[Rfam]
RNA sequence: CUACUCCCUCCGUCCCAUAAUAUAAAAACGUUUUUGAUAUUAUACUAGUGUAAAAAAUGUUUUUAUAUUUUGAGACGGAGGAAGUAG
Number, nucleotide and partner (000 for none) at each position: 001c000002u000003a085004c084005u083006c000007c081008c080009u079010c078011c077012g000013u075014c074015c000016c072017a071018u000019a069020a068021u067022a066023u065024a064025a063026a062027a061028a060029c059030g058031u057032u056033u055034u054035u053036g000037a051038u050039a049040u048041u047042a000043u000044a000045c000046u000047a041048g040049u039050g038051u037052a000053a035054a034055a033056a032057a031058u030059g029060u028061u027062u026063u025064u024065a023066u022067a021068u020069u019070u000071u017072g016073a000074g014075a013076c000077g011078g010079a009080g008081g007082a000083a005084g004085u003086a000087g000

This 87-nucleotide sequence from Triticum aestivum belongs to the Rfam family "MIR1120/MIR1122 microRNA precursor family". The match comes from Rfam's covariance-model search (88 bits).